[Rfam]
RNA: Group II catalytic intron D1-D4-1
Organism: Pusillimonas noertemannii
RNA sequence: GCCUUAUGCCUGAAAGGGCGACGGUGCAUGCACCGGAGCGAGAAGUCAGCAGAGGUCGUAGUAGCUGGAGGCUGGGCCGGGGAGGCCGAAAUCGACAGCGAAGGAC
Numbered sequence: 001g002c003c004u005u006a007u008g009c010c011u012g013a014a015a016g017g018g019c020g021a022c023g024g025u026g027c028a029u030g031c032a033c034c035g036g037a038g039c040g041a042g043a044a045g046u047c048a049g050c051a052g053a054g055g056u057c058g059u060a061g062u063a064g065c066u067g068g069a070g071g072c073u074g075g076g077c078c079g080g081g082g083a084g085g086c087c088g089a090a091a092u093c094g095a096c097a098g099c100g101a102a103g104g105a106c
Stems, first nucleotide, its partner, number of pairs: 001027002004023001007020005046053002055106003064099003